[Rfam]
Nucleotides: 043
Stems, first nucleotide, its partner, number of pairs: 005030002008027005
Number, partner (000 for none) and nucleotide at each position: 001000a002000a003000a004000a005030u006029c007000u008027u009026g010025c011024a012023a013000a014000a015000u016000c017000a018000a019000u020000a021000a022000a023012u024011u025010g026009c027008a028000g029006g030005a031000a032000c033000g034000a035000u036000g037000u038000a039000g040000g041000c042000c043000u